The record is a 73-nucleotide RNA sequence from Mycobacterium avium, which matches "hya RNA" in Rfam.

[Rfam]
RNA sequence: AGCGUCGCGCAAGCGGGCCGAUAGUCGACUCCUGCGGUGUGAGGGGCUUUAGCCCGGUCCCGGAAAGCUGCAU
Numbered sequence: 001a002g003c004g005u006c007g008c009g010c011a012a013g014c015g016g017g018c019c020g021a022u023a024g025u026c027g028a029c030u031c032c033u034g035c036g037g038u039g040u041g042a043g044g045g046g047c048u049u050u051a052g053c054c055c056g057g058u059c060c061c062g063g064a065a066a067g068c069u070g071c072a073u
Stems, first nucleotide, its partner, number of pairs: 003039006043061006

Source information:
It is one of the family's seed sequences.